This 140-nucleotide RNA sequence from Nicotiana tabacum belongs to the Rfam family "small nucleolar RNA snoR137". A reference for the family is Chen and Wu (2009), "Mining small RNA sequencing data: a new approach to identify small nucleolar RNAs in Arabidopsis", Nucleic Acids Res. The family has 4 seed sequences and 808 matches in Rfam 15.1. The match comes from Rfam's covariance-model search (87 bits). Gene Ontology terms of the family: nucleolus and RNA processing.
RNA sequence: GUUGCUUCUUACUUGUGAACACCUCUUUAUUUUAUAUGGGGUAUUCCUGUUUCGGAAGCAUAGAUUGAUCUUUUUGCCAGUAUUAAACAGCGUGAUGAGUACAUAAUGUUGCAUCGCGUUACCUGUCUUCUGGCACAACC
Numbered sequence: 001g002u003u004g005c006u007u008c009u010u011a012c013u014u015g016u017g018a019a020c021a022c023c024u025c026u027u028u029a030u031u032u033u034a035u036a037u038g039g040g041g042u043a044u045u046c047c048u049g050u051u052u053c054g055g056a057a058g059c060a061u062a063g064a065u066u067g068a069u070c071u072u073u074u075u076g077c078c079a080g081u082a083u084u085a086a087a088c089a090g091c092g093u094g095a096u097g098a099g100u101a102c103a104u105a106a107u108g109u110u111g112c113a114u115c116g117c118g119u120u121a122c123c124u125g126u127c128u129u130c131u132g133g134c135a136c137a138a139c140c
Stems, first nucleotide, its partner, number of pairs: 003060006017046003021042005076134005082128001089120003093116005